The family of this 128-nucleotide RNA sequence from Microtus ochrogaster is "Small nucleolar RNA SNORA77". ACA63 (SNORA77) is a member of the H/ACA class of snoRNAs that guide the sites of modification of uridines to pseudouridines. This snoRNA was identified by computational screening and its expression in mouse experimentally verified by Northern blot and primer extension analysis. Pairs were carried over by alignment from the consensus structure, which was predicted with RNAalifold. The match comes from Rfam's covariance-model search (87 bits). By type it is an H/ACA-box small nucleolar RNA. Gene Ontology terms of the family: RNA processing and nucleolus.
[Rfam]
RNA sequence: GUAGAUUCAUUCUGCACCUGGCUGCAGCUCCUGUCUGGUACUUUUUUCUGUCUAUUUAGAGAAAUAUUCUGGGGUGCUAUGGCUGCCUCUGUCUAUCAGGAGCAAUGUAGCUUCCUGGGGACACAGUG
Dot-bracket structure: ((((((.......(.(((.(.(.(......).).).))).)........))))))............(((((((.((((((..(((.(...........).))).)))))).))))))).........